RNA sequence: UAAAAGGGUCGGUUGGCUAUGUAUGCCACGCUCGUCUUUCAAUUGAUGAGUGCUGUAUGGCUAUCAAGACAUAUGGCCGACAUAAUUUGUGGAAUCUGAUGGGGUUGGCUCGCUUGGCCGACCCUACAA
Numbered sequence: 001u002a003a004a005a006g007g008g009u010c011g012g013u014u015g016g017c018u019a020u021g022u023a024u025g026c027c028a029c030g031c032u033c034g035u036c037u038u039u040c041a042a043u044u045g046a047u048g049a050g051u052g053c054u055g056u057a058u059g060g061c062u063a064u065c066a067a068g069a070c071a072u073a074u075g076g077c078c079g080a081c082a083u084a085a086u087u088u089g090u091g092g093a094a095u096c097u098g099a100u101g102g103g104g105u106u107g108g109c110u111c112g113c114u115u116g117g118c119c120g121a122c123c124c125u126a127c128a129a
Base pairs, nucleotide, nucleotide: 008081009080010079011078012077014028015027016026017025029052030051031050032049033048034047035046036045053076054075055074056073057072058071059070100126101125102124103123104122105121106120107119108118109117110116